Background
A member of the RNA family "RT-4 RNA", 98 nucleotides long.
[Rfam]
RNA sequence: UACACCUCAGGAUGUUGAAACACAUCUAACCAGUGGAAAUCAUGCCGAUAAAGGCAGGGCUCAGUAAGUGAAAACCCACCAGCCCUGAGGCGAUAAGA
Numbered sequence: 001u002a003c004a005c006c007u008c009a010g011g012a013u014g015u016u017g018a019a020a021c022a023c024a025u026c027u028a029a030c031c032a033g034u035g036g037a038a039a040u041c042a043u044g045c046c047g048a049u050a051a052a053g054g055c056a057g058g059g060c061u062c063a064g065u066a067a068g069u070g071a072a073a074a075c076c077c078a079c080c081a082g083c084c085c086u087g088a089g090g091c092g093a094u095a096a097g098a
Stems, first nucleotide, its partner, number of pairs: 003035003010027006044091003055087006064079002068075002